[Rfam]
RNA sequence: AUAAAUCUUCAGGGCGAGGUGCAAUUCCUCACCGGCGGUAUAGCCCGCGAGCCAUUUAUUGGUUGACUUGGUGAAAUUCCAAGGCCGACAGUGAAAGUCUGGAUGGGAGAAGAUUAUA
Dot-bracket structure: ...(((((((......(((.......))).[[((((((....[[))))..(((.......)))...(((((.......)))))]])).(((.....]]))).......)))))))...
Rfam assigns this 118-nucleotide RNA from Tepidimicrobium xylanilyticum to the family "FMN riboswitch aptamer (RFN element)". Rfam links the family to the GO term FMN binding. Taxonomically the source falls in Tepidimicrobium (Bacteria, Bacillati, Tissierellia, Tissierellales). A search with the family's covariance model found it, with a score of 120 bits.